[Rfam]
RNA sequence: CCGACUGAUCUGAACUCCAGUUCUGGGUGAGUCUCUGGGAACCCAGACUCAUAUGGGGAGAAACUGGACUGUCUGGCAUCGGUCGGA
Numbered sequence: 001c002c003g004a005c006u007g008a009u010c011u012g013a014a015c016u017c018c019a020g021u022u023c024u025g026g027g028u029g030a031g032u033c034u035c036u037g038g039g040a041a042c043c044c045a046g047a048c049u050c051a052u053a054u055g056g057g058g059a060g061a062a063a064c065u066g067g068a069c070u071g072u073c074u075g076g077c078a079u080c081g082g083u084c085g086g087a
Stems, first nucleotide, its partner, number of pairs: 001086002005082005010076003014072002016068006022059003027052005034047005

The family of this 87-nucleotide RNA from Myotis lucifugus is "mir-9230 microRNA precursor family".
Its family is annotated with miRNA-mediated post-transcriptional gene silencing and RISC complex in the Gene Ontology.